[Rfam]
Nucleotides: 228
Base pairs, nucleotide, nucleotide: 021053022052023051024050025049026048027047028046030044062137063136064135065134066133071126173218174217175216176215179212187204188203189202190201191200192199193198
Number, partner (000 for none) and nucleotide at each position: 001000a002000u003000u004000u005000g006000g007000g008000a009000a010000a011000u012000a013000g014000c015000g016000g017000c018000u019000g020000a021053g022052u023051c024050u025049c026048g027047a028046u029000c030044g031000a032000u033000a034000c035000g036000g037000c038000g039000g040000a041000a042000g043000c044030c045000a046028a047027u048026c049025g050024a051023g052022a053021u054000g055000a056000c057000g058000a059000g060000g061000u062137g063136g064135a065134g066133g067000u068000u069000c070000c071126u072000c073000u074000c075000c076000g077000c078000g079000a080000g081000g082000a083000g084000a085000g086000a087000g088000c089000u090000a091000a092000c093000u094000u095000u096000g097000g098000g099000u100000a101000a102000c103000u104000c105000c106000a107000a108000a109000g110000g111000a112000a113000a114000a115000u116000c117000g118000a119000a120000a121000g122000a123000u124000c125000a126071g127000c128000g129000g130000g131000u132000g133066c134065c135064u136063c137062u138000g139000a140000a141000g142000c143000c144000u145000g146000a147000u148000c149000a150000c151000g152000g153000g154000u155000u156000u157000c158000u159000u160000u161000u162000c163000c164000c165000c166000c167000a168000u169000a170000u171000u172000c173218a174217c175216a176215c177000g178000a179212u180000c181000u182000c183000a184000a185000a186000a187204g188203c189202a190201g191200a192199u193198g194000g195000u196000g197000a198193c199192g200191u201190c202189u203188g204187c205000c206000a207000c208000a209000a210000a211000g212179a213000a214000a215176g216175u217174g218173u219000a220000g221000u222000g223000a224000u225000c226000u227000a228000c
Source information: This 228-nucleotide sequence from Ornatilinea apprima belongs to the Rfam family "glmS glucosamine-6-phosphate activated ribozyme aptamer". Rfam links the family to the GO terms catalytic activity and regulation of gene expression. By type it is a riboswitch. From the family's description: This entry contains a glucosamine-6-phosphate activated ribozyme that is found in the mRNA for GlmS. GlmS is an enzyme that uses fructose-6-phosphate and glutamine to generate glucosamine-6-phosphate. The ribozyme catalyses self cleavage of the glmS mRNA that is thought to regulate GlmS activity.